[Rfam]
RNA: c-di-AMP riboswitch aptamer (ydaO/yuaA leader)
Organism: Polymorphospora rubra
RNA sequence: UGGUGACCGCCGCCCAAUCGCCGCGAGGCGAGCCGGGGAACCAGGUCUCCUGGGGUGAAUCCGCGAGAGCGGUAGGGAUCCUUCCGUCCCGAACCCGUCAGCUAACCCGGUCGGCGGCAGAUGGGAGGAACG
Numbered sequence: 001u002g003g004u005g006a007c008c009g010c011c012g013c014c015c016a017a018u019c020g021c022c023g024c025g026a027g028g029c030g031a032g033c034c035g036g037g038g039a040a041c042c043a044g045g046u047c048u049c050c051u052g053g054g055g056u057g058a059a060u061c062c063g064c065g066a067g068a069g070c071g072g073u074a075g076g077g078a079u080c081c082u083u084c085c086g087u088c089c090c091g092a093a094c095c096c097g098u099c100a101g102c103u104a105a106c107c108c109g110g111u112c113g114g115c116g117g118c119a120g121a122u123g124g125g126a127g128g129a130a131c132g
Base pairs, nucleotide, nucleotide: 011116012115013114014113018031019030020029021028022027032111033110034109035108036107037106042052043051053096054095055094061072062071063070064069075090076089077088078087